PyrR binding site: a 188-nucleotide RNA sequence from Lactococcus lactis. Rfam's curators write: This family represents the PyrR binding site and terminator structure. This RNA structure is found upstream of a variety of genes involved in pyrimidine biosynthesis and transport. The alignment also includes a portion of the antiterminator structure.
[Rfam]
RNA sequence: AAAACUUUUAAUCUAGUCCAGAGAGGCUAGCAAGGUUGUGAACAGGAAAUAUUAUGCUUAAAAGUUACUGACAAAAGAGCGGUGUAGCUUGGUCCAUAAGUACCAAAGCGGACAGGGCUAGUUCUGUCAGUAAACUGUCAGGGCAUAUUAGGACACAUCUGCUAGGUUUCUGGCAGAUGUUUUUGCUU
Numbered sequence: 001a002a003a004a005c006u007u008u009u010a011a012u013c014u015a016g017u018c019c020a021g022a023g024a025g026g027c028u029a030g031c032a033a034g035g036u037u038g039u040g041a042a043c044a045g046g047a048a049a050u051a052u053u054a055u056g057c058u059u060a061a062a063a064g065u066u067a068c069u070g071a072c073a074a075a076a077g078a079g080c081g082g083u084g085u086a087g088c089u090u091g092g093u094c095c096a097u098a099a100g101u102a103c104c105a106a107a108g109c110g111g112a113c114a115g116g117g118c119u120a121g122u123u124c125u126g127u128c129a130g131u132a133a134a135c136u137g138u139c140a141g142g143g144c145a146u147a148u149u150a151g152g153a154c155a156c157a158u159c160u161g162c163u164a165g166g167u168u169u170c171u172g173g174c175a176g177a178u179g180u181u182u183u184u185g186c187u188u
Stems, first nucleotide, its partner, number of pairs: 003037006013030006084113002087109004091104003095100001152183002155180011
On this family, see Bonner et al., Nucleic Acids Res 2001: "Molecular recognition of pyr mRNA by the Bacillus subtilis attenuation regulatory protein PyrR". The family's RNA type in Rfam is cis-regulatory element.